[Rfam]
RNA: Small nucleolar RNA Z221/R21b
RNA sequence: GGGUAAUGAACAUUGAGAUGGUCAUGCACCACUAUGAUUGUCUCUGCUGAUAAAUCUUGUGCCCAUGUUUCCCUGAGCCC
Numbered sequence: 001g002g003g004u005a006a007u008g009a010a011c012a013u014u015g016a017g018a019u020g021g022u023c024a025u026g027c028a029c030c031a032c033u034a035u036g037a038u039u040g041u042c043u044c045u046g047c048u049g050a051u052a053a054a055u056c057u058u059g060u061g062c063c064c065a066u067g068u069u070u071c072c073c074u075g076a077g078c079c080c
Base pairs, nucleotide, nucleotide: 001080002079003078004077